RNA sequence: AUACAGAGUGGGCCAAAUAAAAGGAGCCACCCCGAUAUUUGGAAGUAUUUAUUGGGUUUUAAGAAAAUUUAAAAUCUAAUAAAUACUGCCAAAUAUCGGGGUGGCUCCUUUUAUUUGGCCCACUCUGUAU
Numbered sequence: 001a002u003a004c005a006g007a008g009u010g011g012g013c014c015a016a017a018u019a020a021a022a023g024g025a026g027c028c029a030c031c032c033c034g035a036u037a038u039u040u041g042g043a044a045g046u047a048u049u050u051a052u053u054g055g056g057u058u059u060u061a062a063g064a065a066a067a068u069u070u071a072a073a074a075u076c077u078a079a080u081a082a083a084u085a086c087u088g089c090c091a092a093a094u095a096u097c098g099g100g101g102u103g104g105c106u107c108c109u110u111u112u113a114u115u116u117g118g119c120c121c122a123c124u125c126u127g128u129a130u
Base pairs, nucleotide, nucleotide: 001130002129003128004127005126006125007124008123009122010121011120012119013118014117015116016115017114018113019112020111021110022109023108024107025106026105027104029102030101031100032099033098034097035096036095037094038093039092041090042089045086046085047084048083049082050081051080
A member of the RNA family "MIR7504 microRNA precursor family" from Diabrotica virgifera, 130 nucleotides long. Lineage of the source: Eukaryota > Pancrustacea > Coleoptera > Chrysomeloidea > Diabrotica virgifera.